[Rfam]
RNA sequence: AAGCAAACUGGUUCUAUCGCUGCUCUUUGAGAGGAGAGGAAAGUCCGGGCAACAUAGAGCGACACGCUUCCUAACGGGAAGGCACUUGCCUGGUGCAAGUGACAGAAAGUGCCACAGAGAAUAUACCGCCAUAGCAAUAUGGUAAGGGUGAAAACGUGAGGUAAGAGCUCACGGUCUUGUAUGGUAACAUGCAUUACGGUAAACCUCGUGUGUUGAAAGACCAAAUAGGUUGUAUAAUUCGAAGGCUGCUCGUCUUCUGUUGCGUGCAACAUAUACAAUGGGUAGGUUGAUGGAGCUUGUGUGUGAAUGCAAGCCUAGAUAAAUGAUAGAAAUCCUGCAAAGGAUACAGAACCCGGCUUACAAGGUUUGCUUCUUU
Numbered sequence: 001a002a003g004c005a006a007a008c009u010g011g012u013u014c015u016a017u018c019g020c021u022g023c024u025c026u027u028u029g030a031g032a033g034g035a036g037a038g039g040a041a042a043g044u045c046c047g048g049g050c051a052a053c054a055u056a057g058a059g060c061g062a063c064a065c066g067c068u069u070c071c072u073a074a075c076g077g078g079a080a081g082g083c084a085c086u087u088g089c090c091u092g093g094u095g096c097a098a099g100u101g102a103c104a105g106a107a108a109g110u111g112c113c114a115c116a117g118a119g120a121a122u123a124u125a126c127c128g129c130c131a132u133a134g135c136a137a138u139a140u141g142g143u144a145a146g147g148g149u150g151a152a153a154a155c156g157u158g159a160g161g162u163a164a165g166a167g168c169u170c171a172c173g174g175u176c177u178u179g180u181a182u183g184g185u186a187a188c189a190u191g192c193a194u195u196a197c198g199g200u201a202a203a204c205c206u207c208g209u210g211u212g213u214u215g216a217a218a219g220a221c222c223a224a225a226u227a228g229g230u231u232g233u234a235u236a237a238u239u240c241g242a243a244g245g246c247u248g249c250u251c252g253u254c255u256u257c258u259g260u261u262g263c264g265u266g267c268a269a270c271a272u273a274u275a276c277a278a279u280g281g282g283u284a285g286g287u288u289g290a291u292g293g294a295g296c297u298u299g300u301g302u303g304u305g306a307a308u309g310c311a312a313g314c315c316u317a318g319a320u321a322a323a324u325g326a327u328a329g330a331a332a333u334c335c336u337g338c339a340a341a342g343g344a345u346a347c348a349g350a351a352c353c354c355g356g357c358u359u360a361c362a363a364g365g366u367u368u369g370c371u372u373c374u375u376u
Stems, first nucleotide, its partner, number of pairs: 001372009011361001012331007020036002023033004041359003045356005050215004057265001059263001062211005067081005082103001083101007104206002109204002111200003126147002128143006155173006178193006219288004229279006258269001261266001295314008
Source information:
Bacterial RNase P class A: a 376-nucleotide sequence from Sphingobacterium psychroaquaticum. Taxonomically the source falls in Sphingobacterium (Bacteria, Pseudomonadati, Sphingobacteriales, Sphingobacteriaceae). By type it is a ribozyme. Its family is annotated with ribonuclease P activity, tRNA processing and dimeric ribonuclease P complex in the Gene Ontology.